RNA sequence: UAAGGCAAGUAGAAGCACCCGCUUCUCACCUGAUUGACGCUAACAUGUAGUUGACAGGUAUAAAGAAUCCGACUUAUUUGUAAUGAAUUCAGGACGUGUGGGUGCAGUGUGUACCGACACUUUUUUAAUGGA
Numbered sequence: 001u002a003a004g005g006c007a008a009g010u011a012g013a014a015g016c017a018c019c020c021g022c023u024u025c026u027c028a029c030c031u032g033a034u035u036g037a038c039g040c041u042a043a044c045a046u047g048u049a050g051u052u053g054a055c056a057g058g059u060a061u062a063a064a065g066a067a068u069c070c071g072a073c074u075u076a077u078u079u080g081u082a083a084u085g086a087a088u089u090c091a092g093g094a095c096g097u098g099u100g101g102g103u104g105c106a107g108u109g110u111g112u113a114c115c116g117a118c119a120c121u122u123u124u125u126u127a128a129u130g131g132a
Base pairs, nucleotide, nucleotide: 011026012025013024014023015022016021028059029058030057036052037051038050039048040047097119098118099117101115102114103113104112105111106110

Ribosomal protein L20 leader: a 132-nucleotide sequence from Gracilibacillus kekensis. The family's consensus secondary structure was predicted with CMfinder. About the family: This family is a putative r-protein leader autoregulatory structure found in B. subtilis and other low-GC Gram-positive bacteria. It is located in the 5' untranslated regions of mRNAs encoding initiation factor 3 followed by ribosomal proteins L35 and L20 (infC-rpmI-rplT). The family's RNA type in Rfam is cis-regulatory leader. A search with the family's covariance model found it, with a score of 74 bits.